[Rfam]
Rfam assigns this 61-nucleotide sequence from Trichonephila clavata to the family "Small nucleolar RNA U49". Its Rfam clan is "SNORD49 clan". Rfam links the family to the GO terms RNA processing and nucleolus. By type it is a C/D-box small nucleolar RNA. The match comes from Rfam's covariance-model search (36 bits).

RNA sequence: ACUUAAUGAAAAGAAUUAAAAAUAGUAUGUGCCGUAUACCACAUAGAACAACAUUCGAAUU
Numbered sequence: 001a002c003u004u005a006a007u008g009a010a011a012a013g014a015a016u017u018a019a020a021a022a023u024a025g026u027a028u029g030u031g032c033c034g035u036a037u038a039c040c041a042c043a044u045a046g047a048a049c050a051a052c053a054u055u056c057g058a059a060u061u
Stems, first nucleotide, its partner, number of pairs: 012055002026045006